[Rfam]
RNA sequence: AAAAUAGUUUUCUAGGGUUCCGCAUAUAUGAUGGUCUGGUCCGAGAGAAAACGCACUAUGUGUACACGGAGGGACAAAAGCCCGGGAGGA
Numbered sequence: 001a002a003a004a005u006a007g008u009u010u011u012c013u014a015g016g017g018u019u020c021c022g023c024a025u026a027u028a029u030g031a032u033g034g035u036c037u038g039g040u041c042c043g044a045g046a047g048a049a050a051a052c053g054c055a056c057u058a059u060g061u062g063u064a065c066a067c068g069g070a071g072g073g074a075c076a077a078a079a080g081c082c083c084g085g086g087a088g089g090a
Stems, first nucleotide, its partner, number of pairs: 007052006015042002020039002022036001023033003053063004065085001067088001071083003
RNA: Guanidine-I riboswitch aptamer
Organism: Ornithinibacillus caprae